[Rfam]
RNA sequence: UAUUAUGGUAGAGGCGCAUUUUUGAUCAGUAGGUUGCUAGAUAUGGCAAGCAUAGGUGAAGGUAGCUGAAAGGGAAAAAUGCCGAAGAAGUCAGAAGUCUUGAAGUCUGAUAUUCUGGGCAUAUAGUGAAUAACUAUAUGACUGUCAUCGCAAGAUGGAGAGCUACCUAAAGA
Numbered sequence: 001u002a003u004u005a006u007g008g009u010a011g012a013g014g015c016g017c018a019u020u021u022u023u024g025a026u027c028a029g030u031a032g033g034u035u036g037c038u039a040g041a042u043a044u045g046g047c048a049a050g051c052a053u054a055g056g057u058g059a060a061g062g063u064a065g066c067u068g069a070a071a072g073g074g075a076a077a078a079a080u081g082c083c084g085a086a087g088a089a090g091u092c093a094g095a096a097g098u099c100u101u102g103a104a105g106u107c108u109g110a111u112a113u114u115c116u117g118g119g120c121a122u123a124u125a126g127u128g129a130a131u132a133a134c135u136a137u138a139u140g141a142c143u144g145u146c147a148u149c150g151c152a153a154g155a156u157g158g159a160g161a162g163c164u165a166c167c168u169a170a171a172g173a
Stems, first nucleotide, its partner, number of pairs: 007167005016082008032067007086116004090111006117143002120140008145158005
A member of the RNA family "Lysine riboswitch aptamer" from Lachnospiraceae bacterium KM106-2, 173 nucleotides long. It scores 113 bits against the family's covariance model. NCBI's taxonomy places the organism under Bacteria, Bacillati, Bacillota, Clostridia, Lachnospiraceae.